The family of this 152-nucleotide RNA sequence from Yoonia rosea is "Ruegeria cis2 sRNA".
[Rfam]
RNA sequence: GCUGGUGAACUGCGGGUUGUAAUGCAGGAACACGGCACCGCGCAUCUGGUCGAUGUUGUGGAACAAAGGGUUCCAGUCAAACAUUGCUAUCAUUGAUGCGGGCAGUGUGUUGACAACAAACAUUUUGCCCGACGCGAGCAUAUUCACACGUG
Numbered sequence: 001g002c003u004g005g006u007g008a009a010c011u012g013c014g015g016g017u018u019g020u021a022a023u024g025c026a027g028g029a030a031c032a033c034g035g036c037a038c039c040g041c042g043c044a045u046c047u048g049g050u051c052g053a054u055g056u057u058g059u060g061g062a063a064c065a066a067a068g069g070g071u072u073c074c075a076g077u078c079a080a081a082c083a084u085u086g087c088u089a090u091c092a093u094u095g096a097u098g099c100g101g102g103c104a105g106u107g108u109g110u111u112g113a114c115a116a117c118a119a120a121c122a123u124u125u126u127g128c129c130c131g132a133c134g135c136g137a138g139c140a141u142a143u144u145c146a147c148a149c150g151u152g
Stems, first nucleotide, its partner, number of pairs: 002035003006032002010027005037057001039055002041052002066151001068149001070082003086147001089144001092141002095139001099134002101130002103127003107123002110119003